A member of the RNA family "epsC RNA" from Paenibacillus sabuli, 119 nucleotides long. The base pairs follow the family's consensus structure, which is taken from published work. It is annotated as a cis-regulatory element. A search with the family's covariance model found it, with a score of 105 bits. Taxonomically the source falls in Paenibacillus (Bacteria, Bacilli, Caryophanales, Paenibacillaceae).
RNA sequence: AGGUAAUGUCUCCUGCACCUCUAUCACCGGAGGCACUCGACUGCGCUGUGGGCCGGCCGUCAGGCCAGCCUUAGACGUUCAUCGUCAAGGGUGUGGUGUGAGGCGGGGUUGGAUGCCCC
Numbered sequence: 001a002g003g004u005a006a007u008g009u010c011u012c013c014u015g016c017a018c019c020u021c022u023a024u025c026a027c028c029g030g031a032g033g034c035a036c037u038c039g040a041c042u043g044c045g046c047u048g049u050g051g052g053c054c055g056g057c058c059g060u061c062a063g064g065c066c067a068g069c070c071u072u073a074g075a076c077g078u079u080c081a082u083c084g085u086c087a088a089g090g091g092u093g094u095g096g097u098g099u100g101a102g103g104c105g106g107g108g109u110u111g112g113a114u115g116c117c118c119c
Base pairs, nucleotide, nucleotide: 001020002019003018004017007035008034009033010032011031012030013029036102037101038100039099040097041096042095043094044093045092046091047090050071051070052069053068055066056065057064074086075085076084077083105119106118107117108116109115